Rfam assigns this 95-nucleotide RNA sequence from Acyrthosiphon pisum to the family "mir-276 microRNA precursor family". Rfam 15.1 lists 200 matches to the family in 170 species. Taxonomically the source falls in Acyrthosiphon (Eukaryota, Bilateria, Ecdysozoa, Hexapoda). For this family Rfam cites "Identification of microRNAs expressed in two mosquito vectors, Aedes albopictus and Culex quinquefasciatus" (Skalsky et al., BMC Genomics, 2010). Its family is annotated with miRNA-mediated post-transcriptional gene silencing and RISC complex in the Gene Ontology. It scores 82 bits against the family's covariance model.
RNA sequence: UAAAGCAAUGACCACUAGCGAGGUAUAGAGUUCCUACGUUCAAAUUAUUAAUGUUACUCGUAGGAACUUCAUACCGUGCUCUUGGACUUGCGACA
Number, nucleotide and partner (000 for none) at each position: 001u000002a000003a000004a000005g000006c000007a000008a000009u000010g000011a000012c085013c084014a083015c000016u000017a080018g079019c078020g077021a000022g075023g074024u073025a072026u071027a000028g069029a068030g067031u066032u065033c064034c063035u062036a061037c060038g000039u000040u000041c000042a000043a000044a000045u000046u000047a000048u000049u000050a000051a000052u000053g000054u000055u000056a000057c000058u000059c000060g037061u036062a035063g034064g033065a032066a031067c030068u029069u028070c000071a026072u025073a024074c023075c022076g000077u020078g019079c018080u017081c000082u000083u014084g013085g012086a000087c000088u000089u000090g000091c000092g000093a000094c000095a000